[Rfam]
RNA sequence: GCGCCGGUAGCUCAACUGGUUAGAGCGGACCGCUCAUAACGGUUUGGUUGCGGGUUCAAGUCCUGCCCGGCGCA
Numbered sequence: 001g002c003g004c005c006g007g008u009a010g011c012u013c014a015a016c017u018g019g020u021u022a023g024a025g026c027g028g029a030c031c032g033c034u035c036a037u038a039a040c041g042g043u044u045u046g047g048u049u050g051c052g053g054g055u056u057c058a059a060g061u062c063c064u065g066c067c068c069g070g071c072g073c074a
Stems, first nucleotide, its partner, number of pairs: 001073007010026004028044005050066005

The family of this 74-nucleotide RNA sequence from Acidiphilium rubrum is "tRNA". Rfam describes the family as follows. Transfer RNA (tRNA) molecules are approximately 80 nucleotides in length. Taxonomically the source falls in Acidiphilium (Bacteria, Pseudomonadati, Alphaproteobacteria, Acidocellaceae). Rfam links the family to the GO term triplet codon-amino acid adaptor activity.